Record summary:
The record is a 46-nucleotide RNA sequence from a Gemmataceae bacterium, which matches "Acido-Lenti-1 RNA" in Rfam. The family's RNA type in Rfam is small RNA. The base pairs follow the family's consensus structure, which is taken from published work.

[Rfam]
RNA sequence: CCAGGGGUUCACACCCCUGGCUAUUGACUGCCGCCCCUUCGGGGCU
Numbered sequence: 001c002c003a004g005g006g007g008u009u010c011a012c013a014c015c016c017c018u019g020g021c022u023a024u025u026g027a028c029u030g031c032c033g034c035c036c037c038u039u040c041g042g043g044g045c046u
Stems, first nucleotide, its partner, number of pairs: 001020008033045005
Dot-bracket structure: ((((((((....))))))))............(((((...))))).
The match comes from Rfam's covariance-model search (53 bits).